Rfam assigns this 75-nucleotide RNA from Aphis gossypii to the family "mir-87 microRNA precursor family".
RNA sequence: CACAUGUCGCCUGAAACUUGCUUUGACCUAAGUACAUUCGCAUUGAGGUGAGCAAAGUUUCAGGCGUGUAAGUGA
Numbered sequence: 001c002a003c004a005u006g007u008c009g010c011c012u013g014a015a016a017c018u019u020g021c022u023u024u025g026a027c028c029u030a031a032g033u034a035c036a037u038u039c040g041c042a043u044u045g046a047g048g049u050g051a052g053c054a055a056a057g058u059u060u061c062a063g064g065c066g067u068g069u070a071a072g073u074g075a
Base pairs, nucleotide, nucleotide: 002073003072005070006069007068008066009065010064011063012062013061014060015058018055019054021052022051023050027048028047029046
Lineage of the source: Eukaryota > Hexapoda > Sternorrhyncha > Aphididae > Aphis. The family has 44 seed sequences and 420 matches in Rfam 15.1.